[Rfam]
RNA sequence: GGCGUAAAGGGCGUGUAGGCGGCUCUACAAGUUAGAAGUGAAACCUAUCAGCUCAACUGAUAGCCUGCUUCUAAAACUGUCGGGCUUGAGUGCAGUAGAGGGGAGUGGAAUUCCCAGUGUAGCGGUGAAAUGCGUAGAUAUUGGGAGGAACACCAGUGGCGAAAGCGGCUCCCUGGCCUGUAACUGACGCUGAGGCGCGAAAGCGUGGGUAGCAAACAGGAUUAGAUACCCUGGUAGUCCACGCCGUAAACGAUGGGUGCUAGGUGUUGGGGGUAUCGACCCCCCCAGUGCCGCAGUUAACGCAAUAAGCACCCCGCCUGGGGAGUACGGCCGCAAGGCUGAAACUCAAAGGAAU
Number, nucleotide and partner (000 for none) at each position: 001g318002g317003c316004g000005u000006a000007a000008a000009g315010g000011g198012c197013g196014u195015g000016u192017a000018g191019g190020c189021g000022g085023c084024u083025c082026u000027a080028c079029a000030a078031g077032u074033u073034a072035g071036a070037a069038g068039u067040g066041a000042a000043a000044c000045c063046u062047a061048u060049c059050a058051g057052c000053u000054c000055a000056a000057c051058u050059g049060a048061u047062a046063g045064c000065c000066u040067g039068c038069u037070u036071c035072u034073a033074a032075a000076a000077c031078u030079g028080u027081c000082g025083g024084g023085c022086u000087u000088g000089a185090g184091u183092g181093c180094a179095g178096u000097a000098g000099a000100g174101g173102g172103g171104a170105g169106u168107g151108g000109a000110a000111u147112u146113c145114c144115c143116a142117g141118u140119g000120u000121a000122g133123c132124g131125g000126u000127g000128a000129a000130a000131u124132g123133c122134g000135u000136a000137g000138a000139u000140a118141u117142u116143g115144g114145g113146a112147g111148g000149a000150a000151c107152a000153c000154c000155a000156g000157u000158g000159g166160c165161g000162a000163a000164a000165g160166c159167g000168g106169c105170u104171c103172c102173c101174u100175g000176g000177c000178c095179u094180g093181u092182a000183a091184c090185u089186g000187a000188c000189g020190c019191u018192g016193a000194g000195g014196c013197g012198c011199g000200a000201a000202a000203g244204c243205g242206u241207g240208g239209g000210u000211a000212g238213c237214a000215a000216a000217c233218a232219g231220g230221a000222u000223u000224a000225g000226a000227u000228a000229c000230c220231c219232u218233g217234g000235u000236a000237g213238u212239c208240c207241a206242c205243g204244c203245c000246g000247u000248a000249a000250a000251c000252g000253a000254u000255g314256g313257g312258u311259g310260c309261u000262a000263g292264g291265u290266g289267u288268u287269g286270g285271g284272g283273g282274u000275a000276u000277c000278g000279a000280c000281c000282c273283c272284c271285c270286c269287a268288g267289u266290g265291c264292c263293g000294c000295a000296g303297u302298u000299a000300a000301c000302g297303c296304a000305a000306u000307a000308a000309g260310c259311a258312c257313c256314c255315c009316g003317c002318c001319u000320g347321g346322g345323g000324a000325g000326u000327a000328c000329g340330g339331c338332c337333g000334c000335a000336a000337g332338g331339c330340u329341g000342a000343a000344a000345c322346u321347c320348a000349a000350a000351g000352g000353a000354a000355u000

This 355-nucleotide part of an RNA from Desulfoscipio gibsoniae belongs to the Rfam family "Bacterial small subunit ribosomal RNA". Pairs were carried over by alignment from the consensus structure, which is taken from published work.